[Rfam]
Description: A member of the RNA family "Small nucleolar RNA SNORD110" from Galemys pyrenaicus, 67 nucleotides long. Rfam links the family to the GO terms nucleolus and RNA processing. A search with the family's covariance model found it, with a score of 90 bits. NCBI's taxonomy places the organism under Eukaryota, Metazoa, Deuterostomia, Sarcopterygii, Galemys. Pairs were carried over by alignment from the consensus structure. A reference for the family is Galardi et al. (2002), "Purified box C/D snoRNPs are able to reproduce site-specific 2'-O-methylation of target RNA in vitro", Mol Cell Biol.
RNA sequence: UUGCAGUGAUGACUGAUUCUGUCAAUCCCCUGAGUGCAAUCACUGAUGUCACCAUGUCUCUGAGCAA
Numbered sequence: 001u002u003g004c005a006g007u008g009a010u011g012a013c014u015g016a017u018u019c020u021g022u023c024a025a026u027c028c029c030c031u032g033a034g035u036g037c038a039a040u041c042a043c044u045g046a047u048g049u050c051a052c053c054a055u056g057u058c059u060c061u062g063a064g065c066a067a
Stems, first nucleotide, its partner, number of pairs: 001067004